RNA sequence: AGUAAUGAGUACCGGCUUCCAGCCCUGACUGGCCGGUCGGCAACCCUCCUUCCACGGCGGGGUGCCUCAGGUGAAUACUCGGCAUAUCGAAAAUCCUCGAGUUGCAAGCGUGAGAA
Numbered sequence: 001a002g003u004a005a006u007g008a009g010u011a012c013c014g015g016c017u018u019c020c021a022g023c024c025c026u027g028a029c030u031g032g033c034c035g036g037u038c039g040g041c042a043a044c045c046c047u048c049c050u051u052c053c054a055c056g057g058c059g060g061g062g063u064g065c066c067u068c069a070g071g072u073g074a075a076u077a078c079u080c081g082g083c084a085u086a087u088c089g090a091a092a093a094u095c096c097u098c099g100a101g102u103u104g105c106a107a108g109c110g111u112g113a114g115a116a
Stems, first nucleotide, its partner, number of pairs: 001079004009038001011037006021030002039066003044062003048057002082105003087100004
Dot-bracket structure: ((((....(.((((((....((......)).)))))))(((..(((.((......))..))).))).........))))..(((..((((......))))..)))...........

Background
This 116-nucleotide RNA from Arthrobacter ulcerisalmonis belongs to the Rfam family "SAM (S-adenosyl methionine) riboswitch aptamer". Rfam 15.1 lists 2,360 matches to the family in 1,305 species. The base pairs follow the family's consensus structure, which is taken from published work. A search with the family's covariance model found it, with a score of 99 bits. SAM-IV is a mRNA element that regulates gene expression via direct sensing of S-adenosylmethionine (SAM or AdoMet).